[Rfam]
RNA sequence: CAAGGGGGUCUCUAGGGUUCCGCGCUGAAAGGCGGCUGGUCCGAGAGAGGCAAACCAGAGUUAUCUGGUCGCACGGCGGGAAAAAAGCCCGGGAGAG
Numbered sequence: 001c002a003a004g005g006g007g008g009u010c011u012c013u014a015g016g017g018u019u020c021c022g023c024g025c026u027g028a029a030a031g032g033c034g035g036c037u038g039g040u041c042c043g044a045g046a047g048a049g050g051c052a053a054a055c056c057a058g059a060g061u062u063a064u065c066u067g068g069u070c071g072c073a074c075g076g077c078g079g080g081a082a083a084a085a086a087g088c089c090c091g092g093g094a095g096a097g
Stems, first nucleotide, its partner, number of pairs: 008051005015042002020039002022036001023034004054069006072092001074095001078090003
Record summary:
This 97-nucleotide RNA sequence from Gloeobacterales cyanobacterium ES-bin-313 belongs to the Rfam family "Guanidine-I riboswitch aptamer". A search with the family's covariance model found it, with a score of 73 bits. Lineage of the source: Bacteria > Bacillati > Cyanobacteriota > Cyanophyceae > Gloeobacterales. About the family: This family represents a conserved RNA structure found upstream of the ykkC and yxkD genes in Bacillus subtilis and related genes in other bacteria. The function of this family is unclear although it has been suggested that it may function to switch on efflux pumps and detoxification systems in response to harmful environmental molecules. The pairing is the family consensus, mapped onto this sequence.